[Rfam]
RNA sequence: GUGUAUAUUCGGCAAAACACUCUAAAGAGUGUGACGCAAAGCUAUAGGGCCUGUAAAAUGGUAGCCAGUUGUACUU
Numbered sequence: 001g002u003g004u005a006u007a008u009u010c011g012g013c014a015a016a017a018c019a020c021u022c023u024a025a026a027g028a029g030u031g032u033g034a035c036g037c038a039a040a041g042c043u044a045u046a047g048g049g050c051c052u053g054u055a056a057a058a059u060g061g062u063a064g065c066c067a068g069u070u071g072u073a074c075u076u
Base pairs, nucleotide, nucleotide: 012037013036017032018031019030020029021028022027040070041069042068043067047066048065049062050061051060
Rfam assigns this 76-nucleotide sequence from Coprococcus sp. CAG:782 to the family "c-di-GMP-I riboswitch aptamer". NCBI's taxonomy places the organism under Bacteria, Bacillati, Clostridia, Lachnospiraceae, Coprococcus. The family's consensus secondary structure is taken from published work.